The record is a 430-nucleotide RNA sequence from Aceticella autotrophica, which matches "Bacterial RNase P class A" in Rfam.
Rfam's curators write: Ribonuclease P (RNase P) is a ubiquitous endoribonuclease, found in archaea, bacteria and eukarya as well as chloroplasts and mitochondria.
It is annotated as a ribozyme.
A search with the family's covariance model found it, with a score of 283 bits.
RNA sequence: CGAGUAAGCCGGAUGGUCGCAUGCAUUUGCAUGAGGAAAGUCCGAGCUCCAUAGGGCAAGAUGCCGGGUAACACCCGGUGGAGGUGACUCCAAGGAAAGUGCAACAGAGAUAUACCGCCAUUCGGAUGAUGGAUGUCGGAUCUGAAAAGUCAGAAUUAAAAUUGAUGAAUGAUUGAUUAUUGCUCUAAUCUGACUUUUGACUUCUGAUUUCUAACUCCGUUGUGGUAAGGGUGGAAAGGCGAGGUAAGAGCUCACCAGCAGCCAGGCGACUGGACUGCUCUGUAAACCCCAUCUGGAGCAAGGUAGAAUAGGAGGGAUUACGCAGUUGCCCGCUGUUCCCUCGGGUAAAACCGCUAAAGAUGUCAGGCAACUGGCAUCGUAGAUAGAUGACCGUCUAAGACAGAACUCGGCUUACAGACUUGCUCGUAUA
Numbered sequence: 001c002g003a004g005u006a007a008g009c010c011g012g013a014u015g016g017u018c019g020c021a022u023g024c025a026u027u028u029g030c031a032u033g034a035g036g037a038a039a040g041u042c043c044g045a046g047c048u049c050c051a052u053a054g055g056g057c058a059a060g061a062u063g064c065c066g067g068g069u070a071a072c073a074c075c076c077g078g079u080g081g082a083g084g085u086g087a088c089u090c091c092a093a094g095g096a097a098a099g100u101g102c103a104a105c106a107g108a109g110a111u112a113u114a115c116c117g118c119c120a121u122u123c124g125g126a127u128g129a130u131g132g133a134u135g136u137c138g139g140a141u142c143u144g145a146a147a148a149g150u151c152a153g154a155a156u157u158a159a160a161a162u163u164g165a166u167g168a169a170u171g172a173u174u175g176a177u178u179a180u181u182g183c184u185c186u187a188a189u190c191u192g193a194c195u196u197u198u199g200a201c202u203u204c205u206g207a208u209u210u211c212u213a214a215c216u217c218c219g220u221u222g223u224g225g226u227a228a229g230g231g232u233g234g235a236a237a238g239g240c241g242a243g244g245u246a247a248g249a250g251c252u253c254a255c256c257a258g259c260a261g262c263c264a265g266g267c268g269a270c271u272g273g274a275c276u277g278c279u280c281u282g283u284a285a286a287c288c289c290c291a292u293c294u295g296g297a298g299c300a301a302g303g304u305a306g307a308a309u310a311g312g313a314g315g316g317a318u319u320a321c322g323c324a325g326u327u328g329c330c331c332g333c334u335g336u337u338c339c340c341u342c343g344g345g346u347a348a349a350a351c352c353g354c355u356a357a358a359g360a361u362g363u364c365a366g367g368c369a370a371c372u373g374g375c376a377u378c379g380u381a382g383a384u385a386g387a388u389g390a391c392c393g394u395c396u397a398a399g400a401c402a403g404a405a406c407u408c409g410g411c412u413u414a415c416a417g418a419c420u421u422g423c424u425c426g427u428a429u430a
Stems, first nucleotide, its partner, number of pairs: 001426008010417001011415001012395007020033005038413003042410005047298004054331004059294005064078005079093001080091004094289002099287002101283003115230002117226005123219003238256002241253003258278004262273004302352003312342006322336005359378008